[Rfam]
RNA: SAM riboswitch aptamer (S box leader)
Organism: Geomesophilobacter sediminis
RNA sequence: UGCUUAUCGAGAGUGGUGGAGGGAAAGGCCCUGCGAAACCACAGCAACCGGCCCAUUGGGCGCCAGGUGCUAAAUCCUGCCGAAAGGCGAAGAUGAGAA
Numbered sequence: 001u002g003c004u005u006a007u008c009g010a011g012a013g014u015g016g017u018g019g020a021g022g023g024a025a026a027g028g029c030c031c032u033g034c035g036a037a038a039c040c041a042c043a044g045c046a047a048c049c050g051g052c053c054c055a056u057u058g059g060g061c062g063c064c065a066g067g068u069g070c071u072a073a074a075u076c077c078u079g080c081c082g083a084a085a086g087g088c089g090a091a092g093a094u095g096a097g098a099a
Stems, first nucleotide, its partner, number of pairs: 001099001003097006013042005021031003026078003043071004048067002050064003075091001